[Rfam]
RNA sequence: GCAGACUCACUCUGUACCUGGUUGCAGCUCCAGGCAGGUGCUUUUUCUGUCUGCCAGAGAAUCAUCCCAGGGUGCUGUGACCACCUUGACCUGUCAAGGGUGAUGCAGUUGUCUGGGGACACAGUG
Numbered sequence: 001g002c003a004g005a006c007u008c009a010c011u012c013u014g015u016a017c018c019u020g021g022u023u024g025c026a027g028c029u030c031c032a033g034g035c036a037g038g039u040g041c042u043u044u045u046u047c048u049g050u051c052u053g054c055c056a057g058a059g060a061a062u063c064a065u066c067c068c069a070g071g072g073u074g075c076u077g078u079g080a081c082c083a084c085c086u087u088g089a090c091c092u093g094u095c096a097a098g099g100g101u102g103a104u105g106c107a108g109u110u111g112u113c114u115g116g117g118g119a120c121a122c123a124g125u126g
Stems, first nucleotide, its partner, number of pairs: 001054006014041007022033003066117006074109006082102005